[Rfam]
RNA sequence: CAGUAGGCUAGGUUGGCCGCCGAAAAGUGUAAACCUUGAUGCACCUGCCUACUGUUUUUAUAAAUCAAGG
Numbered sequence: 001c002a003g004u005a006g007g008c009u010a011g012g013u014u015g016g017c018c019g020c021c022g023a024a025a026a027g028u029g030u031a032a033a034c035c036u037u038g039a040u041g042c043a044c045c046u047g048c049c050u051a052c053u054g055u056u057u058u059u060a061u062a063a064a065u066c067a068a069g070g
Stems, first nucleotide, its partner, number of pairs: 001054008011021003027044005034070006
A member of the RNA family "int-alpA RNA", 70 nucleotides long. The base pairs follow the family's consensus structure, which is taken from published work. Rfam's curators write: Acidobacteria (1 example), Planctomycetes (1 example), Proteobacteria. The family has 167 seed sequences and 577 matches in Rfam 15.1. The family's RNA type in Rfam is small RNA.